Overview
Rfam assigns this 153-nucleotide sequence from Anoxybacteroides amylolyticum to the family "PyrR binding site". A search with the family's covariance model found it, with a score of 55 bits. From the family's description: This family represents the PyrR binding site and terminator structure. This RNA structure is found upstream of a variety of genes involved in pyrimidine biosynthesis and transport. The alignment also includes a portion of the antiterminator structure.

[Rfam]
RNA sequence: AUCACCUUUUAAUUAAGUCCCGCGAGACUUAAAAGGGUGUUCCUGUUCGCGUAAAAAGGAAAAACCGAAUGCGAAAAGCGGUUUCUUUUCCUACACCUUUUUACGCCCAAAAACGGUGCAGCACCCUGUCGGUUAGGCAGGGUGCUUUUUUUG
Numbered sequence: 001a002u003c004a005c006c007u008u009u010u011a012a013u014u015a016a017g018u019c020c021c022g023c024g025a026g027a028c029u030u031a032a033a034a035g036g037g038u039g040u041u042c043c044u045g046u047u048c049g050c051g052u053a054a055a056a057a058g059g060a061a062a063a064a065c066c067g068a069a070u071g072c073g074a075a076a077a078g079c080g081g082u083u084u085c086u087u088u089u090c091c092u093a094c095a096c097c098u099u100u101u102u103a104c105g106c107c108c109a110a111a112a113a114c115g116g117u118g119c120a121g122c123a124c125c126c127u128g129u130c131g132g133u134u135a136g137g138c139a140g141g142g143u144g145c146u147u148u149u150u151u152u153g
Base pairs, nucleotide, nucleotide: 005036006035007034008033009032014031015030016029017028018027019026057089058088059087060086062084063083064082065081066080067079118148120146121145122144123143124142125141126140127139128138129137130136